[Rfam]
Nucleotides: 126
Stems, first nucleotide, its partner, number of pairs: 007092004015035001017034007036071003041067003045062002095108004
Number, partner (000 for none) and nucleotide at each position: 001000u002000a003000a004000u005000a006000u007092c008091a009090u010089c011000a012000g013000g014000a015035g016000c017034g018033g019032u020031u021030u022029c023028g024000u025000a026000u027000u028023u029022g030021a031020a032019a033018c034017c035015c036071a037070c038069c039000a040000a041067c042066c043065g044000a045062g046061c047000c048000c049000a050000g051000a052000u053000a054000a055000a056000u057000c058000a059000u060000g061046g062045u063000c064000a065043c066042g067041g068000u069038g070037g071036u072000u073000a074000g075000a076000g077000c078000c079000u080000u081000a082000a083000a084000c085000g086000c087000u088000a089010g090009a091008u092007g093000c094000g095108c096107c097106c098105a099000g100000g101000a102000a103000a104000a105098u106097g107096g108095g109000a110000a111000a112000c113000a114000u115000g116000a117000u118000u119000a120000g121000c122000c123000g124000c125000c126000u
This 126-nucleotide RNA belongs to the Rfam family "SAM-I/IV (S-adenosyl methionine) riboswitch aptamer".
The sequence is in the family's curated seed alignment.
Clan: SAM clan.
For this family Rfam cites "The aptamer core of SAM-IV riboswitches mimics the ligand-binding site of SAM-I riboswitches" (Weinberg et al., RNA, 2008).
Rfam 15.1 lists 567 matches to the family in 508 species.